[Rfam]
This 85-nucleotide sequence from Acinetobacter brisouii belongs to the Rfam family "t44 RNA". A search with the family's covariance model found it, with a score of 61 bits.
RNA sequence: AUGGGGCAACAAAAUCCGCACAUAUAUCGACACAUUUCUCUGGGUGCCUUUCGAGGUGGAGAAUGCGGAUAUAUGGAGGCCUAAC
Dot-bracket structure: ....................((((((((....(((.(((((....((((....))))))))))))..))))))))..........